[Rfam]
RNA sequence: ACUCAUGUAACUCAAGGGUUAUGUGGUGCGGCCAUUAAAUUAUGGUCAGCUUGUUUGUCCAGCGUAAGCAAAUACAUUAAGAGGUCUGUCACUGUGGGAGUAGCGCGAUCGCGAAAACAACAUACAGC
Numbered sequence: 001a002c003u004c005a006u007g008u009a010a011c012u013c014a015a016g017g018g019u020u021a022u023g024u025g026g027u028g029c030g031g032c033c034a035u036u037a038a039a040u041u042a043u044g045g046u047c048a049g050c051u052u053g054u055u056u057g058u059c060c061a062g063c064g065u066a067a068g069c070a071a072a073u074a075c076a077u078u079a080a081g082a083g084g085u086c087u088g089u090c091a092c093u094g095u096g097g098g099a100g101u102a103g104c105g106c107g108a109u110c111g112c113g114a115a116a117a118c119a120a121c122a123u124a125c126a127g128c
Base pairs, nucleotide, nucleotide: 001027003026004025005024006023007022008021009020011018012017062069063068084128086127087126088125089124095119096118103112104111
Rfam assigns this 128-nucleotide RNA sequence to the family "Bacteriophage Diversity-Generating Retroelement RNA". It is annotated as a small RNA. On this family, see Handa et al., Nature 2025: "RNA control of reverse transcription in a diversity-generating retroelement". Rfam's curators put it in the seed alignment.